[Rfam]
RNA sequence: UUUAGAACUCGAGAUAUGGGCUGAACACUGAACAAUGUCUGGGCUGCAGGACAGACUCCGACUUCUCCAUUGUUGCUACAAUUUGAACUUGAAAACGGUCUUUUUGAAUCUUGGAUUCUUCAUGAAAGUUUUAGACCUAUGUCUUAGCUUUCCAUC
Numbered sequence: 001u002u003u004a005g006a007a008c009u010c011g012a013g014a015u016a017u018g019g020g021c022u023g024a025a026c027a028c029u030g031a032a033c034a035a036u037g038u039c040u041g042g043g044c045u046g047c048a049g050g051a052c053a054g055a056c057u058c059c060g061a062c063u064u065c066u067c068c069a070u071u072g073u074u075g076c077u078a079c080a081a082u083u084u085g086a087a088c089u090u091g092a093a094a095a096c097g098g099u100c101u102u103u104u105u106g107a108a109u110c111u112u113g114g115a116u117u118c119u120u121c122a123u124g125a126a127a128g129u130u131u132u133a134g135a136c137c138u139a140u141g142u143c144u145u146a147g148c149u150u151u152c153c154a155u156c
Stems, first nucleotide, its partner, number of pairs: 003154001005152003008147002011145010021134005027129003035123003041119003045115001048112004054105002060099001062098002072088003